[Rfam]
RNA sequence: CCUUCCGGCGGUUUGGAGGUUCUCCCACUUUUCUAACCCUAACUCGCUGUCGGCUUCGGCGGCGUUUGGCAUCGUUCGCUGUUUUACUAGCUGGCUUUCAGCGAACCGAAGCUCCGAAAAAAACGUCAGCGAUCCGGGGGAAACCUCCUCCGCCAGCCGGUCACGCGUUUCCCCCCUUUCUCCGCUUAGGGCGUGCUGGCUUUCCGAGUCGGCGCCGCCGCCCCCGCUCGAGGCCGCGGUCAGCCUGGUCCGGGCCGCUGCUGCCGCGAAGGGUUCAGCCCUGCCCGCCUCGGGGGGGCGGCGAGUCUCACUGAAGGGCGGAGGACCGGGGGGGAAGGGCUCGCAAGGGCCCUAGCGCGAAGAGCAAAAACGGGCGGCGCCUCCUGUCCCGCUCACCUUUGAGUAGUGGGGUGAGCGGCCGGCGACGCCCGGACACUC
Numbered sequence: 001c002c003u004u005c006c007g008g009c010g011g012u013u014u015g016g017a018g019g020u021u022c023u024c025c026c027a028c029u030u031u032u033c034u035a036a037c038c039c040u041a042a043c044u045c046g047c048u049g050u051c052g053g054c055u056u057c058g059g060c061g062g063c064g065u066u067u068g069g070c071a072u073c074g075u076u077c078g079c080u081g082u083u084u085u086a087c088u089a090g091c092u093g094g095c096u097u098u099c100a101g102c103g104a105a106c107c108g109a110a111g112c113u114c115c116g117a118a119a120a121a122a123a124c125g126u127c128a129g130c131g132a133u134c135c136g137g138g139g140g141a142a143a144c145c146u147c148c149u150c151c152g153c154c155a156g157c158c159g160g161u162c163a164c165g166c167g168u169u170u171c172c173c174c175c176c177u178u179u180c181u182c183c184g185c186u187u188a189g190g191g192c193g194u195g196c197u198g199g200c201u202u203u204c205c206g207a208g209u210c211g212g213c214g215c216c217g218c219c220g221c222c223c224c225c226g227c228u229c230g231a232g233g234c235c236g237c238g239g240u241c242a243g244c245c246u247g248g249u250c251c252g253g254g255c256c257g258c259u260g261c262u263g264c265c266g267c268g269a270a271g272g273g274u275u276c277a278g279c280c281c282u283g284c285c286c287g288c289c290u291c292g293g294g295g296g297g298g299c300g301g302c303g304a305g306u307c308u309c310a311c312u313g314a315a316g317g318g319c320g321g322a323g324g325a326c327c328g329g330g331g332g333g334g335a336a337g338g339g340c341u342c343g344c345a346a347g348g349g350c351c352c353u354a355g356c357g358c359g360a361a362g363a364g365c366a367a368a369a370a371c372g373g374g375c376g377g378c379g380c381c382u383c384c385u386g387u388c389c390c391g392c393u394c395a396c397c398u399u400u401g402a403g404u405a406g407u408g409g410g411g412u413g414a415g416c417g418g419c420c421g422g423c424g425a426c427g428c429c430c431g432g433a434c435a436c437u438c
Stems, first nucleotide, its partner, number of pairs: 004160002007157001010154002014152006021141005064112004074106008090130006096123003164359006198319001200317005213303007221296005235268005241263004247256003270282004372430005378424004389418005396411004
This 438-nucleotide RNA sequence from Thamnophis sirtalis belongs to the Rfam family "Vertebrate telomerase RNA". The literature on the family includes a 2002 paper in Nucleic Acids Res by Antal et al., "Analysis of the structure of human telomerase RNA in vivo". The family's RNA type in Rfam is non-coding RNA gene. The source organism's lineage runs through Eukaryota, Dipnotetrapodomorpha, Lepidosauria, Toxicofera and Thamnophis. Telomerase is a ribonucleoprotein reverse transcriptase that synthesises telomeric DNA. Telomerase RNAs differ greatly in sequence and structure between vertebrates, ciliates and yeasts, but they share a 5' pseudoknot structure close to the template sequence. Vertebrate telomerase RNAs have a 3' H/ACA snoRNA-like domain. Gene Ontology terms of the family: telomerase activity, telomere maintenance via telomerase and telomerase catalytic core complex.